[Rfam]
RNA sequence: AAGUUGUUGAGAACUUUUUGAAUCACUACAUGACUUAGAUUCAAAAAGUUCUCACAAA
Numbered sequence: 001a002a003g004u005u006g007u008u009g010a011g012a013a014c015u016u017u018u019u020g021a022a023u024c025a026c027u028a029c030a031u032g033a034c035u036u037a038g039a040u041u042c043a044a045a046a047a048g049u050u051c052u053c054a055c056a057a058a
Stems, first nucleotide, its partner, number of pairs: 008054017025036001
This 58-nucleotide sequence from Turnera subulata belongs to the Rfam family "Plastid-ccsA-ndhD-1 3UTR RNA". The match comes from Rfam's covariance-model search (60 bits). By type it is a cis-regulatory element. The family's consensus secondary structure was predicted with LocARNA.